The family of this 113-nucleotide RNA from Paramesorhizobium deserti is "EcpR1". Rfam links the family to the GO terms mRNA binding, negative regulation of cell cycle and regulation of translation in response to stress. The literature on the family includes a 2012 paper in RNA Biol by Wilms et al., "Deep sequencing uncovers numerous small RNAs on all four replicons of the plant pathogen Agrobacterium tumefaciens". Perviously named SmelC291, SmrC10, or Sra33. According to its overproduction phenotype it was renamed Elongated Cell Phenotype RNA1. Induced by stress,EcpR1 negatively regulates cell cycle master regulatory genes dnaA and gcrA at post-transcriptional level by base pairing between its strongly conserved GC-rich loop and the target mRNAs. The match comes from Rfam's covariance-model search (107 bits). The family's RNA type in Rfam is small RNA.
[Rfam]
RNA sequence: AUACCCCAUGAUGCUCAGGUCCGCCGCAUCUCCUGGGUCCGUGGGGUCGGUCGGUCGGCGUUGGCACAUAGUGGAAUCCUCGUACCGCUGCCAAUUCGCCGGCCGACCCCCUU
Number, nucleotide and partner (000 for none) at each position: 001a000002u000003a047004c046005c045006c044007c043008a042009u041010g040011a000012u000013g000014c037015u036016c035017a034018g033019g032020u000021c000022c000023g000024c000025c000026g000027c000028a000029u000030c000031u000032c019033c018034u017035g016036g015037g014038u000039c000040c010041g009042u008043g007044g006045g005046g004047u003048c000049g108050g107051u106052c105053g104054g103055u102056c101057g100058g099059c098060g000061u000062u000063g000064g000065c000066a000067c000068a000069u000070a000071g000072u000073g000074g000075a000076a000077u000078c000079c000080u000081c000082g000083u000084a000085c000086c000087g000088c000089u000090g000091c000092c000093a000094a000095u000096u000097c000098g059099c058100c057101g056102g055103c054104c053105g052106a051107c050108c049109c000110c000111c000112u000113u000